[Rfam]
RNA sequence: GAGGUAGCAAUGAUUAUAAAAAUAAUUCCUCGUUCUGAUUUGCUCAAUUUGGGCAUGAUAGACUUUUUAUUACACCCAUAGAAUCUGAGCUACU
Numbered sequence: 001g002a003g004g005u006a007g008c009a010a011u012g013a014u015u016a017u018a019a020a021a022a023u024a025a026u027u028c029c030u031c032g033u034u035c036u037g038a039u040u041u042g043c044u045c046a047a048u049u050u051g052g053g054c055a056u057g058a059u060a061g062a063c064u065u066u067u068u069a070u071u072a073c074a075c076c077c078a079u080a081g082a083a084u085c086u087g088a089g090c091u092a093c094u
Base pairs, nucleotide, nucleotide: 003094004093006091007090

The record is a 94-nucleotide RNA sequence from Theobroma umbraticum, which matches "Small nucleolar RNA snoR8a" in Rfam. Rfam 15.1 lists 956 matches to the family in 245 species. Pairs were carried over by alignment from the consensus structure, which was predicted with WAR. By type it is a C/D-box small nucleolar RNA. NCBI's taxonomy places the organism under Eukaryota, Streptophytina, Spermatophyta, Malvales, Theobroma. Gene Ontology terms of the family: nucleolus and RNA processing.